This 110-nucleotide RNA sequence from [Bacteroides] pectinophilus belongs to the Rfam family "S10-Clostridia ribosomal protein leader". It is annotated as a cis-regulatory leader.
RNA sequence: UGAUAGCAAUGAAACGAGAAGUUGCUGCGAAGCGAAAGCUAAGCAGGUUAUUCCGUGGAGCGAAUGUCAAAAACCGAUACAACCCAUCGGUUUCAACAAAAUGGCGACAA
Numbered sequence: 001u002g003a004u005a006g007c008a009a010u011g012a013a014a015c016g017a018g019a020a021g022u023u024g025c026u027g028c029g030a031a032g033c034g035a036a037a038g039c040u041a042a043g044c045a046g047g048u049u050a051u052u053c054c055g056u057g058g059a060g061c062g063a064a065u066g067u068c069a070a071a072a073a074c075c076g077a078u079a080c081a082a083c084c085c086a087u088c089g090g091u092u093u094c095a096a097c098a099a100a101a102u103g104g105c106g107a108c109a110a
Stems, first nucleotide, its partner, number of pairs: 014056003018053003021049001025046004065109004